[Rfam]
RNA sequence: AGCUGGCGCCUCCCGACGACAUCCCAGUCGUCUGCGCUGGCUGUUCCCCUCUGGAGGUUUUGACCUUCACAACUGAAAGGGCCCUGGAGCGAUCCGGCGGCCCAUUUUU
Numbered sequence: 001a002g003c004u005g006g007c008g009c010c011u012c013c014c015g016a017c018g019a020c021a022u023c024c025c026a027g028u029c030g031u032c033u034g035c036g037c038u039g040g041c042u043g044u045u046c047c048c049c050u051c052u053g054g055a056g057g058u059u060u061u062g063a064c065c066u067u068c069a070c071a072a073c074u075g076a077a078a079g080g081g082c083c084c085u086g087g088a089g090c091g092a093u094c095c096g097g098c099g100g101c102c103c104a105u106u107u108u109u
Base pairs, nucleotide, nucleotide: 001042002041003040004039005038007036008035009034015032016031017030018029052069053068054067055066056065057064058063079103080102081101082100083099084097085096086095087094
Alphaproteobacterial ar15: a 109-nucleotide RNA from Rhizobium sp. YS-1r. For this family Rfam cites "Identification of differentially expressed small non-coding RNAs in the legume endosymbiont Sinorhizobium meliloti by comparative genomics" (del Val et al., Mol Microbiol, 2007). Rfam links the family to the GO term protein binding. The family is grouped with related families in Rfam's "suhB sRNA clan". A search with the family's covariance model found it, with a score of 75 bits.